[Rfam]
RNA sequence: UCAGACUGGGCAUUUGUUAAAAAAAUUUCGCAUGGUGAAUCCCCCUGAGCGGAGGGGCGACUGGUGACGGUAUAAUCUCUGAUUAUCAAAACGAGAAUGACGCGGGUUUAGUGGCACCGGGCUGAACUCACCGGGAGGCACCCGGCACCAUGUGCAUGAUGAUACAGAUACGCGGCUUUAGCCCCUCUCCGGAGGGGCUUUCUUAUGGAC
Numbered sequence: 001u002c003a004g005a006c007u008g009g010g011c012a013u014u015u016g017u018u019a020a021a022a023a024a025a026u027u028u029c030g031c032a033u034g035g036u037g038a039a040u041c042c043c044c045c046u047g048a049g050c051g052g053a054g055g056g057g058c059g060a061c062u063g064g065u066g067a068c069g070g071u072a073u074a075a076u077c078u079c080u081g082a083u084u085a086u087c088a089a090a091a092c093g094a095g096a097a098u099g100a101c102g103c104g105g106g107u108u109u110a111g112u113g114g115c116a117c118c119g120g121g122c123u124g125a126a127c128u129c130a131c132c133g134g135g136a137g138g139c140a141c142c143c144g145g146c147a148c149c150a151u152g153u154g155c156a157u158g159a160u161g162a163u164a165c166a167g168a169u170a171c172g173c174g175g176c177u178u179u180a181g182c183c184c185c186u187c188u189c190c191g192g193a194g195g196g197g198c199u200u201u202c203u204u205a206u207g208g209a210c
Stems, first nucleotide, its partner, number of pairs: 014161001030153008042057005065093002098102001104129004109124003131145005169209001171207001180199007
The family of this 210-nucleotide sequence from Escherichia sp. 4_1_40B is "Gammaproteobacterial sRNA STnc100". It is one of the family's seed sequences.